RNA sequence: ACUUAUUCUCAGGGCAGGGUGAAAUUCCCUACCGGCGGUAUGUCCCCCGUGGACGAGCCCGCGAGCGCCUGCUGCAGUACAGCAGGGUCAGCAGAUCCGGUGAGAGGCCGGAGCCGACGGUGACAGUCCGGAUGGGAGAGAAUAAGG
Number, nucleotide and partner (000 for none) at each position: 001a000002c000003u145004u144005a143006u142007u141008c140009u139010c138011a000012g000013g000014g000015c000016a000017g029018g028019g027020u000021g000022a000023a000024a000025u000026u000027c019028c018029c017030u000031a127032c126033c116034g115035g062036c061037g060038g059039u000040a000041u000042g000043u000044c000045c000046c000047c000048c000049g000050u000051g000052g000053a000054c000055g000056a000057g114058c113059c038060c037061g036062c035063g000064a000065g092066c091067g000068c000069c000070u000071g000072c000073u000074g000075c000076a000077g000078u000079a000080c000081a000082g000083c000084a000085g000086g000087g000088u000089c000090a000091g066092c065093a000094g000095a000096u112097c111098c110099g109100g108101u000102g000103a000104g000105a000106g000107g000108c100109c099110g098111g097112a096113g058114c057115c034116g033117a000118c130119g129120g128121u000122g000123a000124c000125a000126g032127u031128c120129c119130g118131g000132a000133u000134g000135g000136g000137a000138g010139a009140g008141a007142a006143u005144a004145a003146g000147g000

This 147-nucleotide RNA from Hahella chejuensis belongs to the Rfam family "FMN riboswitch aptamer (RFN element)". Rfam links the family to the GO term FMN binding.